RNA: gabT RNA
RNA sequence: GGCGCCAGGGCCCACCGCAGUCGAUCAUCGUAUGCUGCGCUGGCCACCCCUGGCGCU
Dot-bracket structure: (((((....(.(((.((((((((.....))...)))))).))).).......)))))